[Rfam]
RNA sequence: CACACACGGGCUUGGGCUGGUAUCGGGAGAAAUCCGGUACGGCCUCCGGUGGCGGGCAACCGCCUCAUCCCGUGGAGGUUCAACCGGAAAAGGAAAAUUA
Numbered sequence: 001c002a003c004a005c006a007c008g009g010g011c012u013u014g015g016g017c018u019g020g021u022a023u024c025g026g027g028a029g030a031a032a033u034c035c036g037g038u039a040c041g042g043c044c045u046c047c048g049g050u051g052g053c054g055g056g057c058a059a060c061c062g063c064c065u066c067a068u069c070c071c072g073u074g075g076a077g078g079u080u081c082a083a084c085c086g087g088a089a090a091a092g093g094a095a096a097a098u099u100a
Stems, first nucleotide, its partner, number of pairs: 001077001003075001005074006012067001016044001024036002027034001051064005

A member of the RNA family "rpsB sRNA" from Paramesorhizobium deserti, 100 nucleotides long. The family has 4 seed sequences and 245 matches in Rfam 15.1. Rfam classes the family as a small RNA. The source organism's lineage runs through Bacteria, Pseudomonadati, Pseudomonadota, Alphaproteobacteria and Paramesorhizobium. The base pairs follow the family's consensus structure, which is taken from published work. For this family Rfam cites "Identification of candidate structured RNAs in the marine organism 'Candidatus Pelagibacter ubique'" (Meyer et al., BMC Genomics, 2009).